[Rfam]
Gammaretrovirus core encapsidation signal: a 101-nucleotide RNA from Gammaretrovirus murleu. It is annotated as a cis-regulatory element. About the family: This family represents the Gammaretrovirus (mammalian type C retrovirus) core encapsidation signal and related sequences. It is one of the family's seed sequences.

RNA sequence: GCCUGUACUAGUUGGCUGACUAGACCUGUAUCUGGCGGUUCCGUGGAAGAACUGACGAGUUCGGAGUUCCCGGCCGCAACCCUGGGAGACGUCCCGGGGAC
Numbered sequence: 001g002c003c004u005g006u007a008c009u010a011g012u013u014g015g016c017u018g019a020c021u022a023g024a025c026c027u028g029u030a031u032c033u034g035g036c037g038g039u040u041c042c043g044u045g046g047a048a049g050a051a052c053u054g055a056c057g058a059g060u061u062c063g064g065a066g067u068u069c070c071c072g073g074c075c076g077c078a079a080c081c082c083u084g085g086g087a088g089a090c091g092u093c094c095c096g097g098g099g100a101c
Base pairs, nucleotide, nucleotide: 003028005026008023009022010021011020012019013018035077036076037075038074041073042072043071045070046069047068048067049062050061051060052059053058080099081098082097083096084095085094086093087092